This 83-nucleotide sequence from Anisodus acutangulus belongs to the Rfam family "Small nucleolar RNA Z155". A reference for the family is Chen et al. (2003), "The high diversity of snoRNAs in plants: identification and comparative study of 120 snoRNA genes from Oryza sativa", Nucleic Acids Res. Rfam links the family to the GO terms RNA processing and nucleolus. The family has 8 seed sequences and 429 matches in Rfam 15.1. Pairs were carried over by alignment from the consensus structure. Taxonomically the source falls in Anisodus (Eukaryota, Streptophyta, asterids, lamiids). The family's RNA type in Rfam is C/D-box small nucleolar RNA.
[Rfam]
Nucleotides: 083
Base pairs, nucleotide, nucleotide: 001083002082003081004080005079006078
Number, partner (000 for none) and nucleotide at each position: 001083c002082a003081u004080u005079g006078a007000a008000g009000g010000g011000a012000u013000g014000a015000u016000a017000u018000c019000c020000g021000a022000u023000u024000c025000a026000g027000g028000a029000a030000a031000g032000u033000a034000c035000u036000a037000c038000a039000u040000a041000u042000g043000u044000c045000g046000a047000c048000c049000a050000a051000a052000a053000a054000a055000u056000c057000a058000u059000u060000c061000a062000g063000a064000c065000u066000a067000c068000a069000a070000u071000u072000a073000u074000c075000u076000g077000a078006u079005c080004a081003a082002u083001g